[Rfam]
RNA sequence: CUCUUAUCCCGAGUAGGCGGAGGGACAGGCCCGACGAAGCCCAGCAACCAUCACCACAUUUAAAAAAAGGUGAACGGUGCUAACCUGCAAGGCAUAUCUAUGUGUAUGUCUUGGUCGAUAAGAG
Numbered sequence: 001c002u003c004u005u006a007u008c009c010c011g012a013g014u015a016g017g018c019g020g021a022g023g024g025a026c027a028g029g030c031c032c033g034a035c036g037a038a039g040c041c042c043a044g045c046a047a048c049c050a051u052c053a054c055c056a057c058a059u060u061u062a063a064a065a066a067a068a069g070g071u072g073a074a075c076g077g078u079g080c081u082a083a084c085c086u087g088c089a090a091g092g093c094a095u096a097u098c099u100a101u102g103u104g105u106a107u108g109u110c111u112u113g114g115u116c117g118a119u120a121a122g123a124g
Stems, first nucleotide, its partner, number of pairs: 001124008013042001016041003022032003026087004043081004048077002051073004088113010

The family of this 124-nucleotide RNA sequence from Salipaludibacillus keqinensis is "SAM riboswitch aptamer (S box leader)". Taxonomically the source falls in Salipaludibacillus (Bacteria, Bacilli, Caryophanales, Bacillaceae).